[Rfam]
RNA sequence: GGAAUAAUUCCAUGGAUAAAUAAUGAUCAUAACAAGCAAGAAAUAAAUUAAUAUUCUUGCGGUUGACUUCAUUUACUCUCCUAACAACCUAUUGAAUUUUAUUCAUAAUAUUUUUGAAAAUUUCAAGGUGUACUACCACUUUCAAGCUAUUAUUGCGGACGGGAUCAAACCCGUC
Number, nucleotide and partner (000 for none) at each position: 001g111002g000003a109004a000005u107006a106007a000008u087009u086010c000011c000012a000013u000014g081015g080016a079017u000018a000019a073020a072021u071022a000023a069024u000025g000026a064027u000028c062029a000030u000031a000032a000033c059034a058035a057036g056037c000038a054039a000040g052041a000042a000043a000044u000045a000046a000047a000048u000049u000050a000051a000052u040053a000054u038055u000056c036057u035058u034059g033060c000061g000062g028063u000064u026065g000066a000067c000068u000069u023070c000071a021072u020073u019074u000075a000076c000077u000078c000079u016080c015081c014082u000083a000084a000085c000086a009087a008088c000089c000090u000091a000092u000093u000094g000095a000096a000097u000098u000099u000100u000101a000102u000103u000104c000105a000106u006107a005108a000109u003110a000111u001112u000113u000114u000115u000116g000117a154118a153119a151120a150121u149122u000123u000124c000125a142126a141127g140128g139129u138130g137131u000132a000133c000134u000135a000136c000137c130138a129139c128140u127141u126142u125143c000144a000145a000146g000147c000148u000149a121150u120151u119152a000153u118154u117155g000156c000157g000158g175159a174160c173161g172162g171163g170164a000165u000166c000167a000168a000169a000170c163171c162172c161173g160174u159175c158
The family of this 175-nucleotide RNA sequence from Cuspidothrix issatschenkoi is "Nitrogen stress-induced RNA 8". The base pairs follow the family's consensus structure, which was predicted with RNAalifold. For this family Rfam cites "Identification of Conserved and Potentially Regulatory Small RNAs in Heterocystous Cyanobacteria" (Brenes-Alvarez et al., Front Microbiol, 2016). The family's RNA type in Rfam is small RNA. The match comes from Rfam's covariance-model search (62 bits).